[Rfam]
RNA sequence: GUGCUAAUUGUGGCUGAGCCCCUGACCUUGAACCUGGGAUCCUGCCCAUGAUCUCCUGGUGAUACCGUCAGGGGUAGAUUCCUCGUUAG
Numbered sequence: 001g002u003g004c005u006a007a008u009u010g011u012g013g014c015u016g017a018g019c020c021c022c023u024g025a026c027c028u029u030g031a032a033c034c035u036g037g038g039a040u041c042c043u044g045c046c047c048a049u050g051a052u053c054u055c056c057u058g059g060u061g062a063u064a065c066c067g068u069c070a071g072g073g074g075u076a077g078a079u080u081c082c083u084c085g086u087u088a089g
Stems, first nucleotide, its partner, number of pairs: 005088003010084001012082002018075009032060003036055006
Background:
This 89-nucleotide sequence from Rattus norvegicus belongs to the Rfam family "mir-3070 microRNA precursor family". It scores 102 bits against the family's covariance model. The organism belongs to Rattus, within Eukaryota.